About this RNA
Shown here is a 105-nucleotide RNA from Lactobacillus selangorensis, a member of the family "THF (Tetrahydrofolate) riboswitch aptamer". Rfam 15.1 lists 747 matches to the family in 747 species. From the family's description: Tetrahydrofolate (THF) riboswitch was first reported for Ames et al. as an RNA motif in 5' untranslated (5'-UTR)regions of folate transport and biosynthesis genes in Firmicutes genomes. The literature on the family includes a 2011 paper in Proc Natl Acad Sci U S A by Huang et al., "Long-range pseudoknot interactions dictate the regulatory response in the tetrahydrofolate riboswitch". A search with the family's covariance model found it, with a score of 68 bits. Lineage of the source: Bacteria > Bacillati > Lactobacillales > Lactobacillaceae > Lactobacillus.
RNA sequence: AUCGGAGUAGGAGAUAGAGCGUUAAGUGCCGAUGGAACGGAAUAUGAACAUCGGACAAAGGGUAUCACUUUGCCAGCCCGCGACUCUACCUCCGCAUUCGCCGCA
Number, nucleotide and partner (000 for none) at each position: 001a000002u000003c103004g102005g101006a000007g000008u000009a000010g093011g092012a091013g090014a000015u088016a087017g086018a085019g084020c082021g081022u080023u000024a000025a000026g056027u055028g000029c054030c053031g052032a051033u050034g049035g000036a000037a000038c000039g000040g099041a098042a097043u096044a000045u000046g000047a000048a000049c034050a033051u032052c031053g030054g029055a027056c026057a000058a000059a000060g079061g078062g077063u076064a000065u000066c000067a000068c000069u000070u000071u000072g000073c000074c000075a000076g063077c062078c061079c060080g022081c021082g020083a000084c019085u018086c017087u016088a015089c000090c013091u012092c011093c010094g000095c000096a043097u042098u041099c040100g000101c005102c004103g003104c000105a000